[Rfam]
RNA sequence: GGGUUCCGACCAGUUCAGUCAUCGGGGUUACAAACAGAGUUCUUGUAACUCAUCAUACCCUGUGGAAAGUCCCCGGAGAUAGGGCGGAAAGCGUCCCACCGUGGUAGGUGUAGGCCGGGUCGGCUGCGCAGGGGAGGUGACCUGCGCGCGGCCGUACCCGUAGCGUUGCUCAGAGCAAAGAGAAUAUUGAGAAGGAAUACAUUCCUAACUAAAUGGGGCUUACUCGGUCUGGAACC
Number, nucleotide and partner (000 for none) at each position: 001g000002g236003g235004u234005u233006c232007c231008g229009a228010c227011c226012a000013g000014u191015u190016c189017a188018g187019u186020c000021a000022u000023c062024g061025g060026g059027g058028u057029u000030a000031c000032a000033a000034a000035c000036a000037g051038a050039g049040u048041u047042c000043u000044u000045g000046u000047a041048a040049c039050u038051c037052a000053u000054c000055a000056u000057a028058c027059c026060c025061u024062g023063u000064g000065g000066a000067a221068a220069g219070u000071c218072c217073c216074c215075g000076g000077a000078g000079a000080u000081a000082g000083g095084g094085c093086g092087g000088a000089a000090a000091g000092c086093g085094u084095c083096c000097c110098a109099c108100c107101g000102u000103g000104g000105u000106a000107g100108g099109u098110g097111u000112a000113g164114g000115c000116c160117g159118g158119g157120u156121c000122g000123g153124c000125u151126g149127c148128g147129c146130a000131g000132g000133g000134g000135a000136g142137g141138u000139g000140a000141c137142c136143u000144g000145c000146g129147c128148g127149c126150g000151g125152c000153c123154g000155u000156a120157c119158c118159c117160g116161u000162a000163g000164c113165g000166u000167u000168g000169c000170u000171c000172a000173g000174a000175g000176c000177a000178a000179a000180g000181a000182g000183a000184a000185u000186a019187u018188u017189g016190a015191g014192a000193a206194g205195g204196a203197a202198u000199a000200c000201a000202u197203u196204c195205c194206u193207a000208a000209c000210u000211a000212a000213a000214u000215g074216g073217g072218g071219c069220u068221u067222a000223c000224u000225c000226g011227g010228u009229c008230u000231g007232g006233a005234a004235c003236c002
A member of the RNA family "RNase MRP" from Spodoptera litura, 236 nucleotides long. The base pairs follow the family's consensus structure, which is taken from published work. By type it is a ribozyme. A search with the family's covariance model found it, with a score of 101 bits.